[Rfam]
Overview
7SK RNA: a 335-nucleotide RNA sequence from Atlantisia rogersi. Pairs were carried over by alignment from the consensus structure, which is taken from published work. The family's RNA type in Rfam is non-coding RNA gene. The source organism's lineage runs through Eukaryota, Metazoa, Sarcopterygii, Sauropsida and Atlantisia. Its Rfam clan is "7SK clan". It scores 225 bits against the family's covariance model.

RNA sequence: GGAUGUGAGGGGGAUGUGGCUGUGACAUCUAUCACCCCAUUGAUCUCCAGGGUGGAUUCAGCUGAUCUGGCUGGCUGGGUGGGUGUCCCCUUCCUCCCUCAGGGCUCCAUGUGUCCCCCUCCCAAAGCUGCAGGCUGGGCUGAAGGGGACAACCUUCCCUGAGAGAGAGGCACUGCUCAGCAGUCUGAGGAUACAUGGUCGCUGUGCUGCCCUGCUGGAGCCUCCAAACAAGCUCAGGGCCCAUGUCUAGGAGAAGGAAGGGUAGAGAAGCUCCCAAGGCUGCAGGCACAUCCAGGUGAGGCACUGCAUGGGGGGUUGGUUUGGGGCUUUUCUUU
Number, nucleotide and partner (000 for none) at each position: 001g108002g107003a106004u000005g000006u101007g100008a099009g098010g097011g096012g000013g093014a092015u000016g000017u000018g090019g089020c000021u000022g000023u000024g087025a086026c085027a084028u083029c082030u081031a080032u079033c078034a000035c074036c073037c070038c069039a068040u000041u000042g067043a066044u065045c064046u000047c061048c000049a000050g000051g000052g000053u000054g000055g000056a000057u000058u000059c000060a000061g047062c000063u000064g045065a044066u043067c042068u039069g038070g037071c000072u000073g036074g035075c000076u000077g000078g033079g032080u031081g030082g029083g028084u027085g026086u025087c024088c000089c019090c018091u000092u014093c013094c000095u000096c011097c010098c009099u008100c007101a006102g000103g000104g000105c000106u003107c002108c001109a000110u000111g000112u000113g000114u000115c000116c000117c170118c000119c167120u166121c165122c139123c138124a000125a136126a000127g135128c134129u000130g000131c000132a000133g000134g128135c127136u125137g000138g123139g122140c000141u161142g160143a000144a000145g000146g000147g158148g157149a156150c000151a000152a000153c000154c000155u000156u149157c148158c147159c000160u142161g141162a000163g000164a000165g121166a120167g119168a000169g000170g117171c000172a000173c000174u000175g000176c000177u000178c000179a000180g000181c000182a000183g000184u000185c000186u000187g000188a000189g000190g000191a000192u000193a000194c000195a000196u000197g000198g000199u000200c000201g271202c270203u269204g000205u000206g000207c265208u264209g000210c262211c261212c260213u259214g000215c257216u000217g000218g000219a000220g000221c000222c253223u252224c251225c250226a000227a000228a248229c000230a246231a000232g244233c000234u000235c000236a000237g000238g000239g000240c000241c000242c000243a000244u232245g000246u230247c000248u228249a000250g225251g224252a223253g222254a000255a000256g000257g215258a000259a213260g212261g211262g210263u000264a208265g207266a000267g000268a000269a203270g202271c201272u000273c000274c000275c000276a000277a000278g000279g000280c000281u000282g000283c000284a000285g000286g000287c000288a000289c000290a000291u000292c000293c000294a335295g334296g333297u000298g330299a329300g328301g327302c326303a000304c000305u000306g000307c000308a000309u000310g000311g000312g000313g000314g000315g000316u000317u000318g000319g000320u000321u000322u000323g000324g000325g000326g302327c301328u300329u299330u298331u000332c000333u296334u295335u294